[Rfam]
RNA sequence: CGAACCGUGGCGGGAGAGUCCUCCCAGCAAUUUUGGCGGCGCCGUAGGAGCAAAUCCUCCCCAGGAAUCUCUCAGGCCCAUGUACCGCCACGGCGAG
Dot-bracket structure: .....((((((((......((.(............).)).((((...(((....(.......).....))).).))).......)))))))).....
Numbered sequence: 001c002g003a004a005c006c007g008u009g010g011c012g013g014g015a016g017a018g019u020c021c022u023c024c025c026a027g028c029a030a031u032u033u034u035g036g037c038g039g040c041g042c043c044g045u046a047g048g049a050g051c052a053a054a055u056c057c058u059c060c061c062c063a064g065g066a067a068u069c070u071c072u073c074a075g076g077c078c079c080a081u082g083u084a085c086c087g088c089c090a091c092g093g094c095g096a097g
Stems, first nucleotide, its partner, number of pairs: 006092008020039002023036001041077003044073001048071003055063001